[Rfam]
RNA sequence: UGACGCGCUGCGGGAGAACCUCCACGUCGAGGUGCCGUAGGAGCAAUAUCCUCCCCGGGAAUCUCUCAGGCCCAAGUACCGCAGCGCCGAG
Numbered sequence: 001u002g003a004c005g006c007g008c009u010g011c012g013g014g015a016g017a018a019c020c021u022c023c024a025c026g027u028c029g030a031g032g033u034g035c036c037g038u039a040g041g042a043g044c045a046a047u048a049u050c051c052u053c054c055c056c057g058g059g060a061a062u063c064u065c066u067c068a069g070g071c072c073c074a075a076g077u078a079c080c081g082c083a084g085c086g087c088c089g090a091g
Stems, first nucleotide, its partner, number of pairs: 006086008019032004034071003037067001041065003047058001
The family of this 91-nucleotide RNA sequence from Mycobacterium intermedium is "Glycine riboswitch aptamer". Gene Ontology term of the family: glycine biosynthetic process. Rfam's curators write: This family represents the bacterial glycine riboswitch.